[Rfam]
RNA sequence: GGUGGUGGUGCUGUAGCAGCACAGAAUGGUUUGUGGGUAACGGAGAGAUACAGGCCAUGCUGUGCUGCAGCAGUAACGCCAGG
Numbered sequence: 001g002g003u004g005g006u007g008g009u010g011c012u013g014u015a016g017c018a019g020c021a022c023a024g025a026a027u028g029g030u031u032u033g034u035g036g037g038u039a040a041c042g043g044a045g046a047g048a049u050a051c052a053g054g055c056c057a058u059g060c061u062g063u064g065c066u067g068c069a070g071c072a073g074u075a076a077c078g079c080c081a082g083g
Base pairs, nucleotide, nucleotide: 003081004080005079006078013071014070016068017067018066019065020064021063022062023061024060026058027057028056029055030054031053032052033051034050035049